[Rfam]
RNA sequence: UAGUUAUCAAGAAAGGUGGAGGGAUUAGACCCUGUGAAGCCUUAGCAACCCUUUGUAUUGUUCAAAGAAGGUGCUACAUUCUAUCUCAUUUGAGAAUAGAUAACCG
Numbered sequence: 001u002a003g004u005u006a007u008c009a010a011g012a013a014a015g016g017u018g019g020a021g022g023g024a025u026u027a028g029a030c031c032c033u034g035u036g037a038a039g040c041c042u043u044a045g046c047a048a049c050c051c052u053u054u055g056u057a058u059u060g061u062u063c064a065a066a067g068a069a070g071g072u073g074c075u076a077c078a079u080u081c082u083a084u085c086u087c088a089u090u091u092g093a094g095a096a097u098a099g100a101u102a103a104c105c106g
Stems, first nucleotide, its partner, number of pairs: 001106001003104006013043005021032003026083004044075004049071002051067004079098001084095004

A member of the RNA family "SAM riboswitch aptamer (S box leader)" from Flavobacteria bacterium MS024-3C, 106 nucleotides long. Rfam's curators put it in the seed alignment. Pairs were carried over by alignment from the consensus structure, which is taken from published work.